[Rfam]
RNA: TPP riboswitch aptamer (THI element)
Organism: Candidatus Enterococcus wittei
RNA sequence: GCAAUCACAAAGGGGAGUCCAUCUGGGCUGAGACUGAAUUUAUUCUAAACCCUUCGUACCUGUUUCGGUUAUGCGAGCGUAGGAAUUGUGAACGAAUAGCGA
Numbered sequence: 001g002c003a004a005u006c007a008c009a010a011a012g013g014g015g016a017g018u019c020c021a022u023c024u025g026g027g028c029u030g031a032g033a034c035u036g037a038a039u040u041u042a043u044u045c046u047a048a049a050c051c052c053u054u055c056g057u058a059c060c061u062g063u064u065u066c067g068g069u070u071a072u073g074c075g076a077g078c079g080u081a082g083g084a085a086u087u088g089u090g091a092a093c094g095a096a097u098a099g100c101g102a
Stems, first nucleotide, its partner, number of pairs: 006090005011053004017028004036045003059083004064077004
Dot-bracket structure: .....(((((((((..((((....)))).......(((....)))....)))).....((((.((((......))))..))))..)))))............